Shown here is a 78-nucleotide RNA sequence from Actinomadura harenae, a member of the family "6C RNA". A reference for the family is Weinberg et al. (2007), "Identification of 22 candidate structured RNAs in bacteria using the CMfinder comparative genomics pipeline", Nucleic Acids Res. Lineage of the source: Bacteria > Bacillati > Actinomycetota > Thermomonosporaceae > Actinomadura. The match comes from Rfam's covariance-model search (60 bits). Rfam classes the family as a cis-regulatory element.
[Rfam]
RNA sequence: AACGGGCCGGCUCUACCCCCCCCGGAGCCGGACCGUUCGGCGACCCCCGCUCUCCCCCCCCUGCGGGGGUCGCCUUAC
Numbered sequence: 001a002a003c004g005g006g007c008c009g010g011c012u013c014u015a016c017c018c019c020c021c022c023c024g025g026a027g028c029c030g031g032a033c034c035g036u037u038c039g040g041c042g043a044c045c046c047c048c049g050c051u052c053u054c055c056c057c058c059c060c061c062u063g064c065g066g067g068g069g070u071c072g073c074c075u076u077a078c
Base pairs, nucleotide, nucleotide: 002036003035004034005033007031008030009029010028011027012026013025039074040073041072042071043070044069045068046067047066048065049064050063